[Rfam]
RNA sequence: AACACGAUCCGGGCCCCUCUGGCGGGACGUCGGCGCAGGCCGGCCAACCUUGCGAUGUCGGAUCACCGCA
Dot-bracket structure: .....(((((((.........(((((......................)))))....)))))))......
A member of the RNA family "terC RNA" from Rhodopila globiformis, 70 nucleotides long.